[Rfam]
RNA: mir-147 microRNA precursor family
Nucleotides: 078
Base pairs, nucleotide, nucleotide: 001078002077004075006073007072009070010069011068012067013066014065015064016063018061020059022057023056024055025054026053027052028051029050032049033048
Number, partner (000 for none) and nucleotide at each position: 001078u002077a003000g004075g005000u006073a007072u008000c009070u010069a011068g012067u013066g014065g015064a016063a017000a018061c019000a020059u021000c022057u023056c024055u025054g026053c027052a028051c029050a030000a031000a032049c033048u034000a035000g036000a037000c038000u039000a040000c041000u042000a043000a044000a045000a046000c047000c048033a049032g050029u051028g052027u053026g054025u055024a056023g057022a058000a059020g060000g061018g062000c063016u064015u065014c066013u067012g068011c069010u070009a071000c072007a073006u074000u075004u076000u077002u078001a